A member of the RNA family "Small nucleolar RNA Z161/Z228" from Actinidia chinensis, 95 nucleotides long. The source organism's lineage runs through Eukaryota, Pentapetalae, asterids, Actinidiaceae and Actinidia chinensis. For this family Rfam cites "The high diversity of snoRNAs in plants: identification and comparative study of 120 snoRNA genes from Oryza sativa" (Chen et al., Nucleic Acids Res, 2003).

RNA sequence: AAGCAACAUGAUGAGUUUGGAUCACAACUUCUCACGACAGUUGACUGAGGUACCUCAUGUUUCAUUUUUUUGUUAUCCCAAUAUUACUGUUGGUU
Numbered sequence: 001a002a003g004c005a006a007c008a009u010g011a012u013g014a015g016u017u018u019g020g021a022u023c024a025c026a027a028c029u030u031c032u033c034a035c036g037a038c039a040g041u042u043g044a045c046u047g048a049g050g051u052a053c054c055u056c057a058u059g060u061u062u063c064a065u066u067u068u069u070u071u072g073u074u075a076u077c078c079c080a081a082u083a084u085u086a087c088u089g090u091u092g093g094u095u
Stems, first nucleotide, its partner, number of pairs: 001095002004092001051059002
Rfam links the family to the GO terms nucleolus and RNA processing. Its Rfam clan is "SNORD35 clan". The base pairs follow the family's consensus structure, which was predicted with PFOLD.